[Rfam]
RNA sequence: GUCCCCUUCGUCUAGAGGCCCAGACACCGCCCUUUCACGGCGGUAACAGGGGUUCGAAUCCCCUAGGGGACG
Dot-bracket structure: (((((((..((.(.........))).(((((.......)))))....(((((.......)))))))))))).
Numbered sequence: 001g002u003c004c005c006c007u008u009c010g011u012c013u014a015g016a017g018g019c020c021c022a023g024a025c026a027c028c029g030c031c032c033u034u035u036c037a038c039g040g041c042g043g044u045a046a047c048a049g050g051g052g053u054u055c056g057a058a059u060c061c062c063c064u065a066g067g068g069g070a071c072g
Stems, first nucleotide, its partner, number of pairs: 001071007010025002013023001027043005048064005
The family of this 72-nucleotide RNA sequence from Klebsiella ornithinolytica is "tRNA". Lineage of the source: Bacteria > Pseudomonadati > Pseudomonadota > Gammaproteobacteria > Klebsiella. By type it is a transfer RNA. The base pairs follow the family's consensus structure, which is taken from published work. Transfer RNA (tRNA) molecules are approximately 80 nucleotides in length.